[Rfam]
RNA sequence: UGUAAAAUAAAAGCGCCAGGACUUUGCGUCUUGCAAAGUUGACGAGGACAGAGUCUAUCGAGGAUUCGGCGGAUACUCUGCGUUUGACCAGCGUCAAAGCUUCUACAAAACUCGGGAGCGAUUUCGAGGACAAAGGGAAGCGGAGGUCUAUG
Numbered sequence: 001u002g003u004a005a006a007a008u009a010a011a012a013g014c015g016c017c018a019g020g021a022c023u024u025u026g027c028g029u030c031u032u033g034c035a036a037a038g039u040u041g042a043c044g045a046g047g048a049c050a051g052a053g054u055c056u057a058u059c060g061a062g063g064a065u066u067c068g069g070c071g072g073a074u075a076c077u078c079u080g081c082g083u084u085u086g087a088c089c090a091g092c093g094u095c096a097a098a099g100c101u102u103c104u105a106c107a108a109a110a111c112u113c114g115g116g117a118g119c120g121a122u123u124u125c126g127a128g129g130a131c132a133a134a135g136g137g138a139a140g141c142g143g144a145g146g147u148c149u150a151u152g
Base pairs, nucleotide, nucleotide: 020040021039022038023037024036025035026034027033049080050079051078052077053076058069059068060067061066081093082092083091084090099141100140101139102138103137104136111128112127113126114125115124116123117122
RNA: glmS glucosamine-6-phosphate activated ribozyme aptamer
Organism: Andreesenia angusta